[Rfam]
RNA sequence: GCGAGUAGGGAAAAGAAAGCCAUGAGUAUCUUAGAGCUAUGGGCAUGGGAACAUGGAGGAAAGCCUAGACUUCUUGGCCUCUAAAUUUAGGGGCCAAGACUGAUUUGUAUUUUCCCGAUGCCUCUCAUGCCUAUUAUUCUUAGAUAUUCCUUCCUUUUCCUAUUUGCU
Numbered sequence: 001g002c003g004a005g006u007a008g009g010g011a012a013a014a015g016a017a018a019g020c021c022a023u024g025a026g027u028a029u030c031u032u033a034g035a036g037c038u039a040u041g042g043g044c045a046u047g048g049g050a051a052c053a054u055g056g057a058g059g060a061a062a063g064c065c066u067a068g069a070c071u072u073c074u075u076g077g078c079c080u081c082u083a084a085a086u087u088u089a090g091g092g093g094c095c096a097a098g099a100c101u102g103a104u105u106u107g108u109a110u111u112u113u114c115c116c117g118a119u120g121c122c123u124c125u126c127a128u129g130c131c132u133a134u135u136a137u138u139c140u141u142a143g144a145u146a147u148u149c150c151u152u153c154c155u156u157u158u159c160c161u162a163u164u165u166g167c168u
Stems, first nucleotide, its partner, number of pairs: 009159005015153003024149003029144003033140004040133011052120003056116001058115006
Rfam assigns this 168-nucleotide RNA sequence from Aegilops tauschii to the family "MIR2118 microRNA precursor family". A search with the family's covariance model found it, with a score of 115 bits. For this family Rfam cites "Characterization and expression profiles of miRNAs in rice seeds" (Xue et al., Nucleic Acids Res, 2009). Pairs were carried over by alignment from the consensus structure, which was predicted with RNAalifold. Rfam 15.1 lists 2,377 matches to the family in 45 species.